[Rfam]
RNA sequence: CGCUACUGGCGUAGCAUCAGGGUCCAGUUACAUUAAACCCCGAUUUUCGGGGUUUUUUGUUAUCUGAAGAAGACCAUUCGGAUAGUAACUGGGCUUUUAAGCCCUUUUUUU
Dot-bracket structure: ..................................((((((((.....))))))))...................................((((......)))).......
The family of this 111-nucleotide RNA from Salinivibrio sp. KP-1 is "Gammaprotebacteria rimP leader". The literature on the family includes a 2010 paper in Genome Biol by Naville and Gautheret, "Premature terminator analysis sheds light on a hidden world of bacterial transcriptional attenuation". A search with the family's covariance model found it, with a score of 87 bits.